[Rfam]
RNA sequence: CUGCGAACGUAGUAGAAAUUCGUAUAAUGUGGGUGGGAAGGCAAACUAUCAAACUCCGGGGACGCCCUAAAACUUCUGAUACCAAGCUAUAGUGGAAACACUAUAAGCGGAUGAACUAAUCACAUGGUAAAAAGCCAGAAUAUUUCUGAAAAGAAAAUGGGCAACCGCGGAUCUAAAUCCGUUACAUGUUUAACUAGGCCGGCGAAAGGUAUAAAUAAUGUAAUAGUAAAAGAGCAACGAGUAUACGAUAGUCGAUAUGAUAAAAAUUAUCAUAUUUAAGAUAUACUCUAACCGAUUUAGAGAUAAAUCG
Numbered sequence: 001c002u003g004c005g006a007a008c009g010u011a012g013u014a015g016a017a018a019u020u021c022g023u024a025u026a027a028u029g030u031g032g033g034u035g036g037g038a039a040g041g042c043a044a045a046c047u048a049u050c051a052a053a054c055u056c057c058g059g060g061g062a063c064g065c066c067c068u069a070a071a072a073c074u075u076c077u078g079a080u081a082c083c084a085a086g087c088u089a090u091a092g093u094g095g096a097a098a099c100a101c102u103a104u105a106a107g108c109g110g111a112u113g114a115a116c117u118a119a120u121c122a123c124a125u126g127g128u129a130a131a132a133a134g135c136c137a138g139a140a141u142a143u144u145u146c147u148g149a150a151a152a153g154a155a156a157a158u159g160g161g162c163a164a165c166c167g168c169g170g171a172u173c174u175a176a177a178u179c180c181g182u183u184a185c186a187u188g189u190u191u192a193a194c195u196a197g198g199c200c201g202g203c204g205a206a207a208g209g210u211a212u213a214a215a216u217a218a219u220g221u222a223a224u225a226g227u228a229a230a231a232g233a234g235c236a237a238c239g240a241g242u243a244u245a246c247g248a249u250a251g252u253c254g255a256u257a258u259g260a261u262a263a264a265a266a267u268u269a270u271c272a273u274a275u276u277u278a279a280g281a282u283a284u285a286c287u288c289u290a291a292c293c294g295a296u297u298u299a300g301a302g303a304u305a306a307a308u309c310g
Stems, first nucleotide, its partner, number of pairs: 012021001014019001045252004050247001055171004059166002065161003172233002179226001184221004237289001239288005255275009295308005
Dot-bracket structure: ...........(.(....).).......................[[[[.[....((((((....(((...........................................................................................)))...)).))))((.....(....((((..............................))))....).....))...(.(((((...].]]]]..(((((((((...)))))))))........)))))).....(((((....)))))..
The record is a 310-nucleotide RNA sequence from Ophiocordyceps polyrhachis-furcata, which matches "Group I catalytic intron" in Rfam. A search with the family's covariance model found it, with a score of 64 bits.